[Rfam]
RNA sequence: UGAGAUGAGAUCAAUGUUUGAACAUGCGAUUUCAUGUUGAUUUCAUAUCAUG
Numbered sequence: 001u002g003a004g005a006u007g008a009g010a011u012c013a014a015u016g017u018u019u020g021a022a023c024a025u026g027c028g029a030u031u032u033c034a035u036g037u038u039g040a041u042u043u044c045a046u047a048u049c050a051u052g
Stems, first nucleotide, its partner, number of pairs: 001050003005046013018029003

Source information
The family of this 52-nucleotide RNA sequence from Solanum tuberosum is "MIR1886 microRNA precursor family". Rfam links the family to the GO terms miRNA-mediated post-transcriptional gene silencing and RISC complex.